[Rfam]
RNA: Bacterial large signal recognition particle RNA
Organism: Litchfieldia salsa
RNA sequence: CCGUGCUAAGCGGGGAGGUAGCGGUGCCCUGUACUCGCAAUCCGCUCUAGCGAGGCCGAAUUCCUUCUUUGAGGGUAGUCUACUGUAGGGUCUGCCCCAAGUAAGUGGUGUUGACGUCCGGGUCCUACGCAAUGGGAACCUAUGAACCCUGUCAGGUCCGGAAGGAAGCAGCAGUAAGUGGACUAUCUCAUGUGCCGUAGGGUUGCCUGGACCGAGCUAACUGCUUGGGUAACGUUUAUGGUAGCUAUUCGAUAGAAGGUGCACGG
Dot-bracket structure: ((((((...((((((.(.(...).).))))...(((((...........)))))))......((((((....(((((..((((((((((...((..((((((..(((((......((((((((((((((((.(((((..((((.....((((....(((....)))....))))...))))....)))))))...))))))...))))))))...))).)).)))))).))...)))))))))).)))))...)))))).))))))